mir-263 microRNA precursor family: an 81-nucleotide sequence from Oryctes borbonicus. On this family, see Li et al., BMC Genomics 2009: "Direct sequencing and expression analysis of a large number of miRNAs in Aedes aegypti and a multi-species survey of novel mosquito miRNAs". Lineage of the source: Eukaryota > Opisthokonta > Insecta > Scarabaeoidea > Oryctes.
RNA sequence: UCUGGCCUGCGAAUGGCACUGGAAGAAUUCACGGGGUUAUAAUUCGCGCCCGUGGACUUUGAGUGCCAUCCACAGAGCCAG
Number, nucleotide and partner (000 for none) at each position: 001u000002c000003u000004g078005g000006c000007c075008u074009g073010c000011g000012a000013a069014u068015g067016g066017c065018a064019c000020u062021g000022g060023a058024a000025g057026a000027a000028u000029u055030c054031a053032c052033g051034g050035g000036g000037u000038u000039a000040u000041a000042a000043u000044u000045c000046g000047c000048g000049c000050c034051c033052g032053u031054g030055g029056a000057c025058u023059u000060u022061g000062a020063g000064u018065g017066c016067c015068a014069u013070c000071c000072a000073c009074a008075g007076a000077g000078c004079c000080a000081g000